[Rfam]
Overview
Rfam assigns this 85-nucleotide RNA from Thiocapsa imhoffii to the family "SAH (S-adenosyl-L-homocysteine) riboswitch aptamer". A search with the family's covariance model found it, with a score of 66 bits. The literature on the family includes a 2008 paper in Mol Cell by Wang et al., "Riboswitches that sense S-adenosylhomocysteine and activate genes involved in coenzyme recycling".
RNA sequence: CCCCUCGAGGAGCGUUGCGACCCGAGCCCCGCGGCUCGGGCCAGGCUCGAGGGUGUGGUCGACACGACAACGGCGCUCACUCACG
Numbered sequence: 001c002c003c004c005u006c007g008a009g010g011a012g013c014g015u016u017g018c019g020a021c022c023c024g025a026g027c028c029c030c031g032c033g034g035c036u037c038g039g040g041c042c043a044g045g046c047u048c049g050a051g052g053g054u055g056u057g058g059u060c061g062a063c064a065c066g067a068c069a070a071c072g073g074c075g076c077u078c079a080c081u082c083a084c085g
Stems, first nucleotide, its partner, number of pairs: 002053007021040006